[Rfam]
RNA: Small nucleolar RNA SNORA23
RNA sequence: CUCACGCUGUGUACAUGGUUUUCAUCUGUGUCUGACAGCAGCAUCUGUCUGUGUUUUGCAUUCAGAUCUUGUUAUCCACACAAACGUCAUGCAGCCAACAAGUAAGCUGGGAUCACAAUACUGGCCUAGUGUUGUGUCUUUGGAUAUAUCUUCCACUGGCCAGCCUCCAAAUUCCCACACACAG
Numbered sequence: 001c002u003c004a005c006g007c008u009g010u011g012u013a014c015a016u017g018g019u020u021u022u023c024a025u026c027u028g029u030g031u032c033u034g035a036c037a038g039c040a041g042c043a044u045c046u047g048u049c050u051g052u053g054u055u056u057u058g059c060a061u062u063c064a065g066a067u068c069u070u071g072u073u074a075u076c077c078a079c080a081c082a083a084a085c086g087u088c089a090u091g092c093a094g095c096c097a098a099c100a101a102g103u104a105a106g107c108u109g110g111g112a113u114c115a116c117a118a119u120a121c122u123g124g125c126c127u128a129g130u131g132u133u134g135u136g137u138c139u140u141u142g143g144a145u146a147u148a149u150c151u152u153c154c155a156c157u158g159g160c161c162a163g164c165c166u167c168c169a170a171a172u173u174c175c176c177a178c179a180c181a182c183a184g
Stems, first nucleotide, its partner, number of pairs: 014091003029082003033078002037073005043067005050060003108177005121163006128157004133148006